[Rfam]
RNA sequence: UGACCUUGGAAAUCAAGUAUUGGUGGAGCCUGUGGGGUGAUUUGAGGCGACCCAUACUUGGUUUCAAGGGUGU
Numbered sequence: 001u002g003a004c005c006u007u008g009g010a011a012a013u014c015a016a017g018u019a020u021u022g023g024u025g026g027a028g029c030c031u032g033u034g035g036g037g038u039g040a041u042u043u044g045a046g047g048c049g050a051c052c053c054a055u056a057c058u059u060g061g062u063u064u065c066a067a068g069g070g071u072g073u
Base pairs, nucleotide, nucleotide: 003071004070005069006068007067009065010064011063012062013061014060016058017057022052023051024050028048029047030046031045